[Rfam]
Nucleotides: 194
Stems, first nucleotide, its partner, number of pairs: 007026003011022004048067006069084006113147004118143003126137004150187006157179001160176003
Number, partner (000 for none) and nucleotide at each position: 001000a002000u003000a004000c005000c006000u007026u008025c009024u010000c011022g012021g013020c014019c015000u016000c017000u018000u019014g020013g021012c022011u023000a024009a025008g026007a027000u028000c029000a030000a031000u032000u033000u034000g035000u036000a037000g038000u039000a040000c041000c042000u043000g044000u045000u046000c047000u048067u049066a050065u051064c052063a053062g054000c055000g056000u057000g058000a059000u060000a061000g062053c063052u064051g065050a066049u067048a068000c069084g070083a071082g072081u073080c074079c075000a076000a077000u078000u079074g080073g081072a082071c083070u084069c085000u086000a087000u088000c089000u090000c091000a092000u093000c094000a095000c096000g097000g098000g099000u100000a101000u102000u103000u104000u105000u106000c107000u108000u109000u110000g111000g112000g113147g114146a115145a116144g117000a118143a119142a120141c121000a122000u123000a124000c125000c126137u127136g128135g129134g130000c131000u132000u133000g134129c135128c136127c137126g138000g139000u140000a141120g142119u143118u144116c145115u146114u147113c148000a149000g150187g151186c152185g153184u154183c155182g156000c157179c158000u159000c160176c161175c162174c163000c164000u165000u166000a167000c168000a169000c170000u171000c172000u173000c174162g175161g176160g177000u178000u179157g180000u181000g182155c183154g184153g185152u186151g187150c188000a189000c190000c191000c192000a193000u194000c

Rfam assigns this 194-nucleotide RNA from Babesia bovis to the family "U2 spliceosomal RNA".
The family's RNA type in Rfam is spliceosomal small nuclear RNA.
Rfam links the family to the GO terms pre-mRNA branch point binding, mRNA branch site recognition and U2 snRNP.
The sequence is in the family's curated seed alignment.
The organism belongs to Babesia, within Eukaryota.
U2 is a small nuclear RNA (snRNA) component of the spliceosome (involved in pre-mRNA splicing).